[Rfam]
RNA sequence: GGCGGGAGGGCCUGCGUUAUAAAAUACCCGCAAGGGGAAAGCGUAGCGCCUGACUUUGUACAGGUUUCUAGCCUCCCGCCUUCGGAAA
Number, nucleotide and partner (000 for none) at each position: 001g080002g079003c078004g077005g076006g075007a074008g073009g072010g000011c000012c046013u045014g044015c043016g000017u041018u040019a000020u000021a000022a000023a000024a000025u000026a000027c036028c035029c034030g000031c000032a000033a000034g029035g028036g027037g000038a000039a000040a018041g017042c000043g015044u014045a013046g012047c000048g065049c064050c063051u062052g061053a000054c000055u000056u000057u000058g000059u000060a000061c052062a051063g050064g049065u048066u000067u000068c000069u000070a000071g000072c009073c008074u007075c006076c005077c004078g003079c002080c001081u000082u000083c000084g000085g000086a000087a000088a000
RNA: sRNA-Xcc1